This 82-nucleotide RNA from Aedes aegypti belongs to the Rfam family "mir-263 microRNA precursor family". Pairs were carried over by alignment from the consensus structure, which was predicted with RNAalifold. A reference for the family is Li et al. (2009), "Direct sequencing and expression analysis of a large number of miRNAs in Aedes aegypti and a multi-species survey of novel mosquito miRNAs", BMC Genomics. Gene Ontology terms of the family: RISC complex and miRNA-mediated post-transcriptional gene silencing.

[Rfam]
RNA sequence: CUAGUACACGUAAUGGCACUGGAAGAAUUCACGGGUAUAUUUUGAAAUCCCCGUGUUCUGGCAGUGGCAUCCCUGGUACUAA
Numbered sequence: 001c002u003a004g005u006a007c008a009c010g011u012a013a014u015g016g017c018a019c020u021g022g023a024a025g026a027a028u029u030c031a032c033g034g035g036u037a038u039a040u041u042u043u044g045a046a047a048u049c050c051c052c053g054u055g056u057u058c059u060g061g062c063a064g065u066g067g068c069a070u071c072c073c074u075g076g077u078a079c080u081a082a
Base pairs, nucleotide, nucleotide: 003080004079005078006077007076010073013070014069015068017066018065020063021062023059025058026057030055031054032053033052034051